[Rfam]
RNA sequence: UCCGAUGUGGUGUAAAGGUUAGCAUGAUGGAUUCUCACUCCAUCGAUCAGGGUUCGAUUCCCUGCAUCGGAG
Dot-bracket structure: (((((((..((((........)))).(((((.......)))))....(((((.......)))))))))))).
Numbered sequence: 001u002c003c004g005a006u007g008u009g010g011u012g013u014a015a016a017g018g019u020u021a022g023c024a025u026g027a028u029g030g031a032u033u034c035u036c037a038c039u040c041c042a043u044c045g046a047u048c049a050g051g052g053u054u055c056g057a058u059u060c061c062c063u064g065c066a067u068c069g070g071a072g
Stems, first nucleotide, its partner, number of pairs: 001071007010025004027043005048064005
The family of this 72-nucleotide sequence from Monosporascus sp. 5C6A is "tRNA". Taxonomically the source falls in Monosporascus (Eukaryota, Fungi, Ascomycota, Pezizomycotina). Its Rfam clan is "tRNA clan". It scores 63 bits against the family's covariance model.